[Rfam]
RNA sequence: AAAUAGUCAUGUAACUGGCGGAAAUGGAAUUAACCAUAGGGAGCAUGAUUUAAGGAAAGUAUCGACCGCCUGGGUAGAAUAA
Numbered sequence: 001a002a003a004u005a006g007u008c009a010u011g012u013a014a015c016u017g018g019c020g021g022a023a024a025u026g027g028a029a030u031u032a033a034c035c036a037u038a039g040g041g042a043g044c045a046u047g048a049u050u051u052a053a054g055g056a057a058a059g060u061a062u063c064g065a066c067c068g069c070c071u072g073g074g075u076a077g078a079a080u081a082a
Stems, first nucleotide, its partner, number of pairs: 005050008015040002017070005024037004060076004
RNA: ZMP/ZTP riboswitch aptamer (pfl RNA motif)
Organism: Clostridium homopropionicum